This 330-nucleotide RNA sequence from Moschus moschiferus belongs to the Rfam family "Nuclear RNase P".
Ribonuclease P (RNase P) is a ubiquitous endoribonuclease, found in archaea, bacteria and eukarya as well as chloroplasts and mitochondria. Its best characterised activity is the generation of mature 5'-ends of tRNAs by cleaving the 5'-leader elements of precursor-tRNAs. Cellular RNase Ps are ribonucleoproteins. RNA from bacterial RNase Ps retains its catalytic activity in the absence of the protein subunit, i.e. it is a ribozyme.
The source organism's lineage runs through Eukaryota, Eumetazoa, Chordata, Eutheria and Moschus.
RNA sequence: UUUGUAGGGAAGCUCAUCAGUGGGGCUAGGAGCUGAGUGCGCUUAGUCAUUCUAUCCCAUGUCCCUUGGAAGGUCUAAGACUAGGGCCAUAGAGCAGCCCUAACAGGGCCUUCUCUGAGCUUCAGGGUGGUGUUUCCAGAGAACGGGGCUCCGAGCGAGGGCAGACUGGGCAGGAGAUGCUAUGGACCCCACCCUUGCAGAGGGACCUGGCGGAUGCCUCUUUAGCCGGAGCUUGGAACAAACUCACGGCCAGUGAAGUGAGUUCAAUGGCUGAGGUGACGUACCUGGCCUGGGGGCCUCCUAACCCAAUUCAGACUACUCCCACCCGUA
Numbered sequence: 001u002u003u004g005u006a007g008g009g010a011a012g013c014u015c016a017u018c019a020g021u022g023g024g025g026c027u028a029g030g031a032g033c034u035g036a037g038u039g040c041g042c043u044u045a046g047u048c049a050u051u052c053u054a055u056c057c058c059a060u061g062u063c064c065c066u067u068g069g070a071a072g073g074u075c076u077a078a079g080a081c082u083a084g085g086g087c088c089a090u091a092g093a094g095c096a097g098c099c100c101u102a103a104c105a106g107g108g109c110c111u112u113c114u115c116u117g118a119g120c121u122u123c124a125g126g127g128u129g130g131u132g133u134u135u136c137c138a139g140a141g142a143a144c145g146g147g148g149c150u151c152c153g154a155g156c157g158a159g160g161g162c163a164g165a166c167u168g169g170g171c172a173g174g175a176g177a178u179g180c181u182a183u184g185g186a187c188c189c190c191a192c193c194c195u196u197g198c199a200g201a202g203g204g205a206c207c208u209g210g211c212g213g214a215u216g217c218c219u220c221u222u223u224a225g226c227c228g229g230a231g232c233u234u235g236g237a238a239c240a241a242a243c244u245c246a247c248g249g250c251c252a253g254u255g256a257a258g259u260g261a262g263u264u265c266a267a268u269g270g271c272u273g274a275g276g277u278g279a280c281g282u283a284c285c286u287g288g289c290c291u292g293g294g295g296g297c298c299u300c301c302u303a304a305c306c307c308a309a310u311u312c313a314g315a316c317u318a319c320u321c322c323c324a325c326c327c328g329u330a
Stems, first nucleotide, its partner, number of pairs: 001330001003328002008323002013275004018270001022066004035052005040046001075314002078311002085251004097109004111129001113127004130247003133242002148232006276302001278300002281297002